[Rfam]
RNA sequence: ACAGCAACACCGCCGAGUUCACGCGGACGCGACAGCCGUCCGCGAGGAGCCGGGGACCCAAUCCCCCUGGGGUGAAUCCGCGUCCGCGCGGUAGGGCGACCUCUUGCGCCCGAACCCGUCAGCUAACCCGGUAGGCGGCCAAAGAGGAAAGA
Numbered sequence: 001a002c003a004g005c006a007a008c009a010c011c012g013c014c015g016a017g018u019u020c021a022c023g024c025g026g027a028c029g030c031g032a033c034a035g036c037c038g039u040c041c042g043c044g045a046g047g048a049g050c051c052g053g054g055g056a057c058c059c060a061a062u063c064c065c066c067c068u069g070g071g072g073u074g075a076a077u078c079c080g081c082g083u084c085c086g087c088g089c090g091g092u093a094g095g096g097c098g099a100c101c102u103c104u105u106g107c108g109c110c111c112g113a114a115c116c117c118g119u120c121a122g123c124u125a126a127c128c129c130g131g132u133a134g135g136c137g138g139c140c141a142a143a144g145a146g147g148a149a150a151g152a
Stems, first nucleotide, its partner, number of pairs: 011137004018048003049132006059069002070117003078091004094111004
RNA: c-di-AMP riboswitch aptamer (ydaO/yuaA leader)
Organism: Actinospica acidithermotolerans